[Rfam]
RNA sequence: AUUGGACCAACUUCUGUUGGUGAGAGAGACGUCUCUUUGAAGUAUGUCUCUCUCACCAACAGAAGUUGGUCCAAU
Numbered sequence: 001a002u003u004g005g006a007c008c009a010a011c012u013u014c015u016g017u018u019g020g021u022g023a024g025a026g027a028g029a030c031g032u033c034u035c036u037u038u039g040a041a042g043u044a045u046g047u048c049u050c051u052c053u054c055a056c057c058a059a060c061a062g063a064a065g066u067u068g069g070u071c072c073a074a075u
Stems, first nucleotide, its partner, number of pairs: 001075004005070001007069009017059006026052004
The family of this 75-nucleotide sequence from Gopherus evgoodei is "mir-29 microRNA precursor family". Rfam 15.1 lists 3,328 matches to the family in 787 species. The literature on the family includes a 2001 paper in Cell by Ambros, "microRNAs: tiny regulators with great potential". A search with the family's covariance model found it, with a score of 47 bits. From the family's description: This family represents the microRNA (miRNA) precursors mir-29. Lineage of the source: Eukaryota > Chordata > Sauria > Testudines > Gopherus.